[Rfam]
Record summary
This 135-nucleotide RNA sequence from Leptolyngbyaceae cyanobacterium LF-bin-113 belongs to the Rfam family "c-di-AMP riboswitch aptamer (ydaO/yuaA leader)".

RNA sequence: GCCCUCAGAUUGCUGAAGCGGAGGAACCAAAUUAUUGGGGCUUAUCUUCGUGAGUUCAGGGUUUGAAUGAUCCGAAGAGGGGCAUCUCUCAGCCCUCGCCCGUCAGCUAACUCCGUCAGCAUUGAGAGAGGACUG
Numbered sequence: 001g002c003c004c005u006c007a008g009a010u011u012g013c014u015g016a017a018g019c020g021g022a023g024g025a026a027c028c029a030a031a032u033u034a035u036u037g038g039g040g041c042u043u044a045u046c047u048u049c050g051u052g053a054g055u056u057c058a059g060g061g062u063u064u065g066a067a068u069g070a071u072c073c074g075a076a077g078a079g080g081g082g083c084a085u086c087u088c089u090c091a092g093c094c095c096u097c098g099c100c101c102g103u104c105a106g107c108u109a110a111c112u113c114c115g116u117c118a119g120c121a122u123u124g125a126g127a128g129a130g131g132a133c134u135g
Stems, first nucleotide, its partner, number of pairs: 005016002018116006028037002038101003046077004080095004
Record summary: The base pairs follow the family's consensus structure. The organism belongs to Leptolyngbyaceae, within Bacteria.